[Rfam]
The family of this 56-nucleotide RNA sequence from Kalanchoe fedtschenkoi is "Plastid-ccsA-ndhD-1 3UTR RNA". Lineage of the source: Eukaryota > Streptophytina > Embryophyta > Mesangiospermae > Kalanchoe. Clan: Plastid-ccsA_ndhD 3UTR RNA clan. About the family: Plastid-ccsA-ndhD-1 is a non-coding RNA (ncRNA) recognised in plastids. It was found in the three prime untranslated region (3UTR) of ccsA and ndhD genes, its 3UTR location suggests a role in transcript maturation.

RNA sequence: AAGUCGUCAAGAGCCGUUUGAAUCAAUACAAUACUUGAUUCAAAUGGCUCUCACAA
Numbered sequence: 001a002a003g004u005c006g007u008c009a010a011g012a013g014c015c016g017u018u019u020g021a022a023u024c025a026a027u028a029c030a031a032u033a034c035u036u037g038a039u040u041c042a043a044a045u046g047g048c049u050c051u052c053a054c055a056a
Stems, first nucleotide, its partner, number of pairs: 010051016